[Rfam]
RNA sequence: GCAGACUCACUCUGUGCUGAACUGCAGUCUUCAGUUCAGGUGCUUUUUCUGUCUGCAAGAGUAAUUGUUCACAGGAGUGACAACUGCCUUCUUUCUUGUAGAAGGCUGUUGCUAUUGCUUUUGGGACAUUGUU
Numbered sequence: 001g002c003a004g005a006c007u008c009a010c011u012c013u014g015u016g017c018u019g020a021a022c023u024g025c026a027g028u029c030u031u032c033a034g035u036u037c038a039g040g041u042g043c044u045u046u047u048u049c050u051g052u053c054u055g056c057a058a059g060a061g062u063a064a065u066u067g068u069u070c071a072c073a074g075g076a077g078u079g080a081c082a083a084c085u086g087c088c089u090u091c092u093u094u095c096u097u098g099u100a101g102a103a104g105g106c107u108g109u110u111g112c113u114a115u116u117g118c119u120u121u122u123g124g125g126a127c128a129u130u131g132u133u
Base pairs, nucleotide, nucleotide: 001056002055003054004053005052006051014043015042016041017040018038019037020036022034023033024032069124070123071122073120074119075118077115078114079113081111082110086106087105088104089103
The family of this 133-nucleotide RNA from Pedionomus torquatus is "Small nucleolar RNA SNORA77". Gene Ontology terms of the family: RNA processing and nucleolus. Lineage of the source: Eukaryota > Deuterostomia > Gnathostomata > Dipnotetrapodomorpha > Pedionomus. The family's consensus secondary structure was predicted with RNAalifold. Rfam classes the family as an H/ACA-box small nucleolar RNA. A search with the family's covariance model found it, with a score of 56 bits. The literature on the family includes a 2006 paper in RNA by Schattner et al., "A computational screen for mammalian pseudouridylation guide H/ACA RNAs". Rfam's curators write: ACA63 (SNORA77) is a member of the H/ACA class of snoRNAs that guide the sites of modification of uridines to pseudouridines. This snoRNA was identified by computational screening and its expression in mouse experimentally verified by Northern blot and primer extension analysis. ACA63 is proposed to guide the pseudouridylation of 18S rRNA U814.